[Rfam]
RNA sequence: GAGAUAUGAUGAGUGGUCUAAUCUCGCAUUAAAUUUGCGAGUUAGGUGUCUGCCCCCAAGCCUGGUUACGACAAUUGGGCACUCUCUUUGACCAAUUUGAUCUC
Numbered sequence: 001g002a003g004a005u006a007u008g009a010u011g012a013g014u015g016g017u018c019u020a021a022u023c024u025c026g027c028a029u030u031a032a033a034u035u036u037g038c039g040a041g042u043u044a045g046g047u048g049u050c051u052g053c054c055c056c057c058a059a060g061c062c063u064g065g066u067u068a069c070g071a072c073a074a075u076u077g078g079g080c081a082c083u084c085u086c087u088u089u090g091a092c093c094a095a096u097u098u099g100a101u102c103u104c
Base pairs, nucleotide, nucleotide: 001104002103003102004101014094015093016092017091018090023041024040025039026038027037045083046082047081048080049079050078063077064076065075066074

Rfam assigns this 104-nucleotide sequence from Lathyrus oleraceus to the family "Small nucleolar RNA Z279/snoR105/snoR108". A search with the family's covariance model found it, with a score of 84 bits. Rfam 15.1 lists 906 matches to the family in 223 species. From the family's description: This family includes the plant snoRNAs known as Z279, snoR105 and snoR108. Its Rfam clan is "snoU13 clan". Rfam classes the family as a C/D-box small nucleolar RNA.